[Rfam]
RNA sequence: UGGAGUCUGAGGGUAAGAAAGAAAUAGUACGAGAGGAACUUUCUUUCGUCGCCUCUGGUCGAUCGGUUGUCCGACAGGGCAGUGCCGAGCAGCUACGCGAUAAGGGGUAAAAGCUGAAAGCAUCUAAGCUUGAAACCCGGCCCAAAACGAGACUCCGUCAUAGGACAUGGGUACAAGACCCGCUUGAUAGGCUUGGGAUGUACGCACGAAGGUAACGACGUGUUCAGUCCGCAAGUACUAACGUCCAAGU
Numbered sequence: 001u002g003g004a005g006u007c008u009g010a011g012g013g014u015a016a017g018a019a020a021g022a023a024a025u026a027g028u029a030c031g032a033g034a035g036g037a038a039c040u041u042u043c044u045u046u047c048g049u050c051g052c053c054u055c056u057g058g059u060c061g062a063u064c065g066g067u068u069g070u071c072c073g074a075c076a077g078g079g080c081a082g083u084g085c086c087g088a089g090c091a092g093c094u095a096c097g098c099g100a101u102a103a104g105g106g107g108u109a110a111a112a113g114c115u116g117a118a119a120g121c122a123u124c125u126a127a128g129c130u131u132g133a134a135a136c137c138c139g140g141c142c143c144a145a146a147a148c149g150a151g152a153c154u155c156c157g158u159c160a161u162a163g164g165a166c167a168u169g170g171g172u173a174c175a176a177g178a179c180c181c182g183c184u185u186g187a188u189a190g191g192c193u194u195g196g197g198a199u200g201u202a203c204g205c206a207c208g209a210a211g212g213u214a215a216c217g218a219c220g221u222g223u224u225c226a227g228u229c230c231g232c233a234a235g236u237a238c239u240a241a242c243g244u245c246c247a248a249g250u
Stems, first nucleotide, its partner, number of pairs: 001157008011143004017047008048101005056095003063088005068081005104138003111131005163246004168182004188240003191236005196230003204223005211216001
About this RNA
A member of the RNA family "Archaeal large subunit ribosomal RNA" from Methanofollis fontis, 250 nucleotides of a longer RNA. The source organism's lineage runs through Archaea, Methanobacteriati, Methanomicrobiales, Methanomicrobiaceae and Methanofollis. A search with the family's covariance model found it, with a score of 2911 bits. The family's consensus secondary structure is taken from published work.